Shown here is a 150-nucleotide sequence from Desulfitobacterium hafniense, a member of the family "FMN riboswitch aptamer (RFN element)". The RFN element is a highly conserved domain that is found frequently in the 5'-untranslated regions of prokaryotic mRNAs that encode for flavin mononucleotide (FMN) biosynthesis and transport proteins. This element is a metabolite-dependent riboswitch that directly binds FMN in the absence of proteins. In Bacillus subtilis, the riboswitch most likely controls gene expression by causing premature transcription termination within the 5' untranslated region of the ribDEAHT operon and precluding access to the ribosome-binding site of ypaA mRNA.The FMN riboswitch structure, reported in present an FMN-bound six-stem junction, adopts a butterfly-like scaffold, stapled together by opposingly directed but nearly identically folded peripheral domains.
[Rfam]
RNA sequence: ACGAACCUUCGAGGCAGGGUGAAAUUCCCGACCGGCGGUAAUAAUUGCCCGUGCAAUUCAGCCCGCAACUCAGUGCAGCUCCAGUGCUGCACCGACUGACUUGGUGAGACUCCAAGGCCGACGGUAUAGUCCGGAUGGGAGAAGGUACAA
Numbered sequence: 001a002c003g004a005a006c007c008u009u010c011g012a013g014g015c016a017g018g019g020u021g022a023a024a025u026u027c028c029c030g031a032c033c034g035g036c037g038g039u040a041a042u043a044a045u046u047g048c049c050c051g052u053g054c055a056a057u058u059c060a061g062c063c064c065g066c067a068a069c070u071c072a073g074u075g076c077a078g079c080u081c082c083a084g085u086g087c088u089g090c091a092c093c094g095a096c097u098g099a100c101u102u103g104g105u106g107a108g109a110c111u112c113c114a115a116g117g118c119c120g121a122c123g124g125u126a127u128a129g130u131c132c133g134g135a136u137g138g139g140a141g142a143a144g145g146u147a148c149a150a
Stems, first nucleotide, its partner, number of pairs: 003148001005146006017029003031130002033120002035066004061118002070095002100116005122133003